[Rfam]
RNA: mir-46/mir-47/mir-281 microRNA precursor family
RNA sequence: CGAAUAGGUGAAUAAAGAGAGCUGUCCGUCGACAGUCAACGUACCAAUUUAAUACUGUCAUGGAAUUGCUCUCUUUGUAUAAUAUUCG
Numbered sequence: 001c002g003a004a005u006a007g008g009u010g011a012a013u014a015a016a017g018a019g020a021g022c023u024g025u026c027c028g029u030c031g032a033c034a035g036u037c038a039a040c041g042u043a044c045c046a047a048u049u050u051a052a053u054a055c056u057g058u059c060a061u062g063g064a065a066u067u068g069c070u071c072u073c074u075u076u077g078u079a080u081a082a083u084a085u086u087c088g
Stems, first nucleotide, its partner, number of pairs: 014076005020070003025064004031059003035055002
Dot-bracket structure: .............(((((.(((..((((..(((.((.................)).))).))))...))).)))))............